Rfam assigns this 175-nucleotide sequence from Lachnospiraceae bacterium XBD2001 to the family "Lysine riboswitch aptamer". It scores 103 bits against the family's covariance model. Pairs were carried over by alignment from the consensus structure, which is taken from published work. A reference for the family is Mandal et al. (2003), "Riboswitches Control Fundamental Biochemical Pathways in Bacillus subtilis and Other Bacteria", Cell. The source organism's lineage runs through Bacteria, Bacillati, Bacillota, Clostridia and Lachnospiraceae.

RNA sequence: AUAACAGAUAGAGGUCGCGUGUCUUAUGAGUAUCCGGAGGGAUGCAGCAGGUGCAGAGGAAUUCCGGAGGAAGGAAGCCACGCCGAAAGGAGUAUCGUCCUGUAGAUACUUACUUGGGCACAAGUUGAAGAAGCUUGUGACUGUCAUCUUUUUUAGAUGUUGGGCUAUCAAGGAA
Numbered sequence: 001a002u003a004a005c006a007g008a009u010a011g012a013g014g015u016c017g018c019g020u021g022u023c024u025u026a027u028g029a030g031u032a033u034c035c036g037g038a039g040g041g042a043u044g045c046a047g048c049a050g051g052u053g054c055a056g057a058g059g060a061a062u063u064c065c066g067g068a069g070g071a072a073g074g075a076a077g078c079c080a081c082g083c084c085g086a087a088a089g090g091a092g093u094a095u096c097g098u099c100c101u102g103u104a105g106a107u108a109c110u111u112a113c114u115u116g117g118g119c120a121c122a123a124g125u126u127g128a129a130g131a132a133g134c135u136u137g138u139g140a141c142u143g144u145c146a147u148c149u150u151u152u153u154u155a156g157a158u159g160u161u162g163g164g165c166u167a168u169c170a171a172g173g174a175a
Stems, first nucleotide, its partner, number of pairs: 007169005017083005023077003033068007087115003090111007116142002119139008145159004